[Rfam]
RNA sequence: ACCACGGGAGCCCUGGAGCCGGGCUGAGAGGGCGAGGCAUCGCCGACCGUCGCACCUGAUCCGGGUCGUACCGGCGGAGGGAGGU
Numbered sequence: 001a002c003c004a005c006g007g008g009a010g011c012c013c014u015g016g017a018g019c020c021g022g023g024c025u026g027a028g029a030g031g032g033c034g035a036g037g038c039a040u041c042g043c044c045g046a047c048c049g050u051c052g053c054a055c056c057u058g059a060u061c062c063g064g065g066u067c068g069u070a071c072c073g074g075c076g077g078a079g080g081g082a083g084g085u
Base pairs, nucleotide, nucleotide: 001085002084003083004050005049006048007047010024011023012022013021031044032043033042034041035040055080056079057078061074062073063072064071
Record summary: TPP riboswitch aptamer (THI element): an 85-nucleotide RNA from Kytococcus sp. HMSC28H12. It scores 55 bits against the family's covariance model. The family's consensus secondary structure is taken from published work.